[Rfam]
RNA sequence: GCCCGGUUAGCUCAAUCGGUAGAGCGUAAGACUCUUAAUUAAGUGCCAUCUUAAGGCUGGGGGUUCGAGCCCCCCAUCGGGCU
Number, nucleotide and partner (000 for none) at each position: 001g082002c081003c080004c079005g078006g077007u076008u000009a000010g025011c024012u023013c022014a000015a000016u000017c000018g000019g000020u000021a000022g013023a012024g011025c010026g000027u053028a052029a051030g050031a049032c000033u000034c000035u000036u000037a000038a000039u000040u000041a000042a000043g000044u000045g000046c000047c000048a000049u031050c030051u029052u028053a027054a000055g000056g000057c000058u000059g075060g074061g073062g072063g071064u000065u000066c000067g000068a000069g000070c000071c063072c062073c061074c060075c059076a007077u006078c005079g004080g003081g002082c001083u000
This 83-nucleotide sequence from Ophiocordyceps unilateralis belongs to the Rfam family "tRNA". Pairs were carried over by alignment from the consensus structure, which is taken from published work. Rfam's curators write: Transfer RNA (tRNA) molecules are approximately 80 nucleotides in length. Taxonomically the source falls in Ophiocordyceps (Eukaryota, Ascomycota, Pezizomycotina, Sordariomycetes).